RNA sequence: CGGCGGGGACGACCCCGCCGUGACGACCUAUCCGGGGACGACCCC
Numbered sequence: 001c002g003g004c005g006g007g008g009a010c011g012a013c014c015c016c017g018c019c020g021u022g023a024c025g026a027c028c029u030a031u032c033c034g035g036g037g038a039c040g041a042c043c044c045c
Stems, first nucleotide, its partner, number of pairs: 001020008034045004
RNA: Guanidine-II riboswitch aptamer (mini-ykkC)
Organism: Pseudomonas mangiferae